[Rfam]
RNA: sucA-II RNA
Organism: Pseudomonas panipatensis
RNA sequence: CCGUACCGUCGGAACAUUUUCCGGCGGUACGGCAGCAACGGACCUCAGCUCACAAAGCAGAAGUCCCGAUUUUGAAAUCAUAUAUAUGACCAGCAGGGGCAUCCGGGCUGGCGCCCGGACUAUCUGCAGGAACCGUAGUGGCUACCAGUCGCUGCACAGGGCUUCGUAUCCGAGCGGUUCCAUCAGGUGGUGUCCCCUUACCGAGGGUGACCA
Numbered sequence: 001c002c003g004u005a006c007c008g009u010c011g012g013a014a015c016a017u018u019u020u021c022c023g024g025c026g027g028u029a030c031g032g033c034a035g036c037a038a039c040g041g042a043c044c045u046c047a048g049c050u051c052a053c054a055a056a057g058c059a060g061a062a063g064u065c066c067c068g069a070u071u072u073u074g075a076a077a078u079c080a081u082a083u084a085u086a087u088g089a090c091c092a093g094c095a096g097g098g099g100c101a102u103c104c105g106g107g108c109u110g111g112c113g114c115c116c117g118g119a120c121u122a123u124c125u126g127c128a129g130g131a132a133c134c135g136u137a138g139u140g141g142c143u144a145c146c147a148g149u150c151g152c153u154g155c156a157c158a159g160g161g162c163u164u165c166g167u168a169u170c171c172g173a174g175c176g177g178u179u180c181c182a183u184c185a186g187g188u189g190g191u192g193u194c195c196c197c198u199u200a201c202c203g204a205g206g207g208u209g210a211c212c213a
Stems, first nucleotide, its partner, number of pairs: 001032013040066004045061002048058003095198005100192002102119006120190005126184001130180005139172003143168003147163004